[Rfam]
RNA sequence: UUUUUACCGCAAUUUGCGUUAGCGAUUGAAAUGGCAUCCUUUUUUAUGUCAGUUCGAGUGAAAUUGCUUUUUGCAAUUUUGUAUCGAGAACAAGAAAAAAAGAUAUAGUGUAAAGCGCGACCCUUG
Numbered sequence: 001u002u003u004u005u006a007c008c009g010c011a012a013u014u015u016g017c018g019u020u021a022g023c024g025a026u027u028g029a030a031a032u033g034g035c036a037u038c039c040u041u042u043u044u045u046a047u048g049u050c051a052g053u054u055c056g057a058g059u060g061a062a063a064u065u066g067c068u069u070u071u072u073g074c075a076a077u078u079u080u081g082u083a084u085c086g087a088g089a090a091c092a093a094g095a096a097a098a099a100a101a102g103a104u105a106u107a108g109u110g111u112a113a114a115g116c117g118c119g120a121c122c123c124u125u126g
Stems, first nucleotide, its partner, number of pairs: 022118003026114002031109002036104003042099004047092003
The family of this 126-nucleotide RNA from Lacinutrix sp. WUR7 is "Flavo-1 RNA". Rfam classes the family as a small RNA. The family's consensus secondary structure is taken from published work.